RNA sequence: AACUUAUCAAGAGCGGCGGAGGGAACAGGCCCUGUGAAGCCCGACAACCUGCACAUUGCGUGUAAGGUGCCAAAUCCUGCGGGAAACCGAGAGAUAAGCG
Numbered sequence: 001a002a003c004u005u006a007u008c009a010a011g012a013g014c015g016g017c018g019g020a021g022g023g024a025a026c027a028g029g030c031c032c033u034g035u036g037a038a039g040c041c042c043g044a045c046a047a048c049c050u051g052c053a054c055a056u057u058g059c060g061u062g063u064a065a066g067g068u069g070c071c072a073a074a075u076c077c078u079g080c081g082g083g084a085a086a087c088c089g090a091g092a093g094a095u096a097a098g099c100g
Base pairs, nucleotide, nucleotide: 003098004097005096006095007094008093013042015041016040017039021032022031023030026079027078028077029076043071045069046068048067049066050064051063052062053061075092080089081088082087
RNA: SAM riboswitch aptamer (S box leader)